RNA sequence: UCAGAGGGUCGGGCGGCCGCGGGCAUCGCAAGGUGCGCGAGGAAAGUCCGGGCUCCGCGAAACGACGGUGCCGGGUAACGCCCGGCGGGGGCGACCCCAGGGACAGUGCCACAGAGAGCAGACGGCCACUCCUUCGGGACGGUCAUGGUGAAAGGGUGCGGUAAGAGCGCACCGCGCGACCGGUAACGGAAGCGGCACGGCAAACCCCACCGGGAGCAAAACCGAAUAGGGACGGCACAGGGGCUUCGUUUCAGCUCGUCGUCCGGGUUGGUUGCUGGAGGCGGCGCGCAAGCGUCGUCCUAGAGGAAUGGUCGCCCAGUCCCUUCGGGGAUGGACAGAACCCGGCUUAUAGACCCUCUGGCGUU
Numbered sequence: 001u002c003a004g005a006g007g008g009u010c011g012g013g014c015g016g017c018c019g020c021g022g023g024c025a026u027c028g029c030a031a032g033g034u035g036c037g038c039g040a041g042g043a044a045a046g047u048c049c050g051g052g053c054u055c056c057g058c059g060a061a062a063c064g065a066c067g068g069u070g071c072c073g074g075g076u077a078a079c080g081c082c083c084g085g086c087g088g089g090g091g092c093g094a095c096c097c098c099a100g101g102g103a104c105a106g107u108g109c110c111a112c113a114g115a116g117a118g119c120a121g122a123c124g125g126c127c128a129c130u131c132c133u134u135c136g137g138g139a140c141g142g143u144c145a146u147g148g149u150g151a152a153a154g155g156g157u158g159c160g161g162u163a164a165g166a167g168c169g170c171a172c173c174g175c176g177c178g179a180c181c182g183g184u185a186a187c188g189g190a191a192g193c194g195g196c197a198c199g200g201c202a203a204a205c206c207c208c209a210c211c212g213g214g215a216g217c218a219a220a221a222c223c224g225a226a227u228a229g230g231g232a233c234g235g236c237a238c239a240g241g242g243g244c245u246u247c248g249u250u251u252c253a254g255c256u257c258g259u260c261g262u263c264c265g266g267g268u269u270g271g272u273u274g275c276u277g278g279a280g281g282c283g284g285c286g287c288g289c290a291a292g293c294g295u296c297g298u299c300c301u302a303g304a305g306g307a308a309u310g311g312u313c314g315c316c317c318a319g320u321c322c323c324u325u326c327g328g329g330g331a332u333g334g335a336c337a338g339a340a341c342c343c344g345g346c347u348u349a350u351a352g353a354c355c356c357u358c359u360g361g362c363g364u365u
Base pairs, nucleotide, nucleotide: 001361002360003359004358005357006356007355008354009353010352011350012316013315014314015313016312017311018310020039021038023036024035025034026033027032044348045347046346048345049344050343051342052341053216054215055214056213061250062249063248064247066212067211068210069209070208071085072084073083074082075081086100087098088097089096090095101207102206106205107204108201109200110199123147124146125143126142127141130138131137132136155173156172157171158170159169160168174196175194176193177192180189181188182187220273221272222271223270230264231263232262233261234260235259241257242256243255244254245253280299281298282297283296284295285294286293287292
Shown here is a 365-nucleotide sequence from Sphingomonas melonis, a member of the family "Bacterial RNase P class A". Rfam links the family to the GO terms ribonuclease P activity, tRNA processing and dimeric ribonuclease P complex. The base pairs follow the family's consensus structure, which is taken from published work. The family's RNA type in Rfam is ribozyme. Taxonomically the source falls in Sphingomonas (Bacteria, Pseudomonadati, Sphingomonadales, Sphingomonadaceae).